[Rfam]
RNA sequence: UAUAUGCAGGAUCGCCCCCCGUCAGCGCGUUGCGCCCACGGGGGCGCACUUG
Numbered sequence: 001u002a003u004a005u006g007c008a009g010g011a012u013c014g015c016c017c018c019c020c021g022u023c024a025g026c027g028c029g030u031u032g033c034g035c036c037c038a039c040g041g042g043g044g045c046g047c048a049c050u051u052g
Base pairs, nucleotide, nucleotide: 016044017043018042019041020040021039022038025035026034027033028032
RNA: ffh sRNA